Background:
Enterobacteria greA leader: a 125-nucleotide RNA sequence from Pectobacterium brasiliense.

RNA sequence: GUCAUACUACGGUGCAAUAAGGUCUAAAGUAAACGAUGACCCUCAUUGAACUCUGGGGUAAAAUACGUAUCAAAAUGCAAAACCGCUACUAGCCUGGAAAUUUUGUUCCGGGGCUGGUUGCUUUU
Numbered sequence: 001g002u003c004a005u006a007c008u009a010c011g012g013u014g015c016a017a018u019a020a021g022g023u024c025u026a027a028a029g030u031a032a033a034c035g036a037u038g039a040c041c042c043u044c045a046u047u048g049a050a051c052u053c054u055g056g057g058g059u060a061a062a063a064u065a066c067g068u069a070u071c072a073a074a075a076u077g078c079a080a081a082a083c084c085g086c087u088a089c090u091a092g093c094c095u096g097g098a099a100a101u102u103u104u105g106u107u108c109c110g111g112g113g114c115u116g117g118u119u120g121c122u123u124u125u
Stems, first nucleotide, its partner, number of pairs: 001040005010035002014030002041048001057071004088118008096109003
The family's consensus secondary structure is taken from published work. The literature on the family includes a 2010 paper in Genome Biol by Naville and Gautheret, "Premature terminator analysis sheds light on a hidden world of bacterial transcriptional attenuation". Gene Ontology term of the family: regulation of gene expression. Taxonomically the source falls in Pectobacterium brasiliense (Bacteria, Gammaproteobacteria, Pectobacteriaceae, Pectobacterium).